[Rfam]
This 104-nucleotide sequence from Brassica oleracea belongs to the Rfam family "Small nucleolar RNA Z107/R87".
Rfam links the family to the GO terms nucleolus and RNA processing.
On this family, see Barneche et al., J Mol Biol 2001: "Identification of 66 box C/D snoRNAs in Arabidopsis thaliana: extensive gene duplications generated multiple isoforms predicting new ribosomal RNA 2'-O-methylation sites".
Taxonomically the source falls in Brassica oleracea (Eukaryota, Magnoliopsida, eudicotyledons, rosids).

RNA sequence: AAAGGCAGUGAUGACUCGGAAAUAUUCAAGCUCAACAGACCGGAAUUAGGCGUUUCUUACCGAGAUUCGUUUCUGUGUCGAUACUCCCGCUGAACUGAGCCUUC
Numbered sequence: 001a002a003a004g005g006c007a008g009u010g011a012u013g014a015c016u017c018g019g020a021a022a023u024a025u026u027c028a029a030g031c032u033c034a035a036c037a038g039a040c041c042g043g044a045a046u047u048a049g050g051c052g053u054u055u056c057u058u059a060c061c062g063a064g065a066u067u068c069g070u071u072u073c074u075g076u077g078u079c080g081a082u083a084c085u086c087c088c089g090c091u092g093a094a095c096u097g098a099g100c101c102u103u104c
Stems, first nucleotide, its partner, number of pairs: 002103005